[Rfam]
RNA sequence: AGCCUUUGUGUUGCCCGUUCACUUUCGGAAACUAGUGAAUGUGGUGUCAAAAAAGGCGUAAAUUAAACCCUUUGCAGCCAUUUUCUGCCCUUGAAUUUGAUUUCUUUGGUGUAGGAGCUGCGUAAGUUACAGUU
Numbered sequence: 001a002g003c004c005u006u007u008g009u010g011u012u013g014c015c016c017g018u019u020c021a022c023u024u025u026c027g028g029a030a031a032c033u034a035g036u037g038a039a040u041g042u043g044g045u046g047u048c049a050a051a052a053a054a055g056g057c058g059u060a061a062a063u064u065a066a067a068c069c070c071u072u073u074g075c076a077g078c079c080a081u082u083u084u085c086u087g088c089c090c091u092u093g094a095a096u097u098u099g100a101u102u103u104c105u106u107u108g109g110u111g112u113a114g115g116a117g118c119u120g121c122g123u124a125a126g127u128u129a130c131a132g133u134u
Base pairs, nucleotide, nucleotide: 002057003056004055005054006053007052009049010048012046013045014044015043016041017040018039019038020037021036022035023034070126071125072124073122074121075120076119077118078117083116084115085114086113087112088111089109090108093104094103